[Rfam]
RNA sequence: UCCGCCGAGGGGCGCUGCGACCGUGGAACCAGCACGGCCAGGCUCGGCGGAAUACACCCCAACGGCGCCCGGUUCCC
Dot-bracket structure: .(((((((............(((((.......)))))......)))))))...........................

Rfam assigns this 77-nucleotide RNA from Luteimonas sp. MC1825 to the family "SAH (S-adenosyl-L-homocysteine) riboswitch aptamer".
The family's consensus secondary structure is taken from published work.
The source organism's lineage runs through Bacteria, Pseudomonadati, Pseudomonadota, Gammaproteobacteria and Luteimonas.
Rfam 15.1 lists 1,354 matches to the family in 1,132 species.